[Rfam]
Shown here is a 102-nucleotide RNA sequence from Heyndrickxia oleronia, a member of the family "c-di-GMP-I riboswitch aptamer". Gene Ontology term of the family: cyclic-di-GMP binding.
RNA sequence: GUGAGAUAAAGGCAAACUAUUUGAAAAAAUAGGACGCAAAACCUAGGGUCUAAGGUUGGAUAGAUAAUUAUCCAUUCAUACUAUGAUCGCCUGGCUACCUAA
Numbered sequence: 001g002u003g004a005g006a007u008a009a010a011g012g013c014a015a016a017c018u019a020u021u022u023g024a025a026a027a028a029a030u031a032g033g034a035c036g037c038a039a040a041a042c043c044u045a046g047g048g049u050c051u052a053a054g055g056u057u058g059g060a061u062a063g064a065u066a067a068u069u070a071u072c073c074a075u076u077c078a079u080a081c082u083a084u085g086a087u088c089g090c091c092u093g094g095c096u097a098c099c100u101a102a
Stems, first nucleotide, its partner, number of pairs: 012037002017032006040096001042094002045092003048087003055081002